Rfam assigns this 59-nucleotide RNA sequence from Monodelphis domestica to the family "mir-34 microRNA precursor family".
[Rfam]
RNA sequence: AGGCAGUGUAGUUAGCUGAUUGUAUUCUACUGCCUACAAUCACUAACUCCACUGCCAUC
Numbered sequence: 001a002g003g004c005a006g007u008g009u010a011g012u013u014a015g016c017u018g019a020u021u022g023u024a025u026u027c028u029a030c031u032g033c034c035u036a037c038a039a040u041c042a043c044u045a046a047c048u049c050c051a052c053u054g055c056c057a058u059c
Stems, first nucleotide, its partner, number of pairs: 002056002005053004010048006017042008
On this family, see Dostie et al., RNA 2003: "Numerous microRNPs in neuronal cells containing novel microRNAs". Rfam describes the family as follows. Human mir-34a was discovered computationally and later experimentally verified. The mature sequence is excised from the 5' arm of the hairpin. The source organism's lineage runs through Eukaryota, Gnathostomata, Euteleostomi, Amniota and Monodelphis. Clan: mir-34 clan. Its family is annotated with miRNA-mediated post-transcriptional gene silencing and RISC complex in the Gene Ontology. The sequence is in the family's curated seed alignment. Pairs were carried over by alignment from the consensus structure, which was predicted with RNAalifold.